Plastid-clpP 5UTR RNA: a 69-nucleotide RNA from Oryza meyeriana. Lineage of the source: Eukaryota > Spermatophyta > Liliopsida > Poaceae > Oryza meyeriana. The family's RNA type in Rfam is cis-regulatory element. Plastid clpP is a non-coding RNA (ncRNA) recognised in plastids.
RNA sequence: AAUUAUGUUUGAAAGAAGAAAGAGAAGCAGUUCUAUUCUAUACUCGAUAAGUGCCAAUAUUCAAUGGGC
Numbered sequence: 001a002a003u004u005a006u007g008u009u010u011g012a013a014a015g016a017a018g019a020a021a022g023a024g025a026a027g028c029a030g031u032u033c034u035a036u037u038c039u040a041u042a043c044u045c046g047a048u049a050a051g052u053g054c055c056a057a058u059a060u061u062c063a064a065u066g067g068g069c
Stems, first nucleotide, its partner, number of pairs: 003022002006019001008017003043068003051060003